[Rfam]
Shown here is a 195-nucleotide RNA from Streptomyces daliensis, a member of the family "Actinobacteria sRNA Ms_IGR-5".
The match comes from Rfam's covariance-model search (74 bits).
The pairing is the family consensus, mapped onto this sequence.
By type it is a small RNA.

RNA sequence: ACACGAGAAAGGAGGUGAUCCGGCAGAUGAGCUACGACCGGACGCGUGAGGUGGCUGCGGCCUAGAGCCGUCGCCACAGUGUGACGCCGGUUCGCCCGGCCAAUCUCAGCAGUCACCCGACCCGCGGGCUCGUCGGACUCGUCCGACCGGCGCCUCUCGCCACGGCGAGAGGAGGCAGCCCGCGGGUCGUCUGCU
Numbered sequence: 001a002c003a004c005g006a007g008a009a010a011g012g013a014g015g016u017g018a019u020c021c022g023g024c025a026g027a028u029g030a031g032c033u034a035c036g037a038c039c040g041g042a043c044g045c046g047u048g049a050g051g052u053g054g055c056u057g058c059g060g061c062c063u064a065g066a067g068c069c070g071u072c073g074c075c076a077c078a079g080u081g082u083g084a085c086g087c088c089g090g091u092u093c094g095c096c097c098g099g100c101c102a103a104u105c106u107c108a109g110c111a112g113u114c115a116c117c118c119g120a121c122c123c124g125c126g127g128g129c130u131c132g133u134c135g136g137a138c139u140c141g142u143c144c145g146a147c148c149g150g151c152g153c154c155u156c157u158c159g160c161c162a163c164g165g166c167g168a169g170a171g172g173a174g175g176c177a178g179c180c181c182g183c184g185g186g187u188c189g190u191c192u193g194c195u
Stems, first nucleotide, its partner, number of pairs: 015058003019054001060101001062099002065096001067095002070092001072090001118189013132151005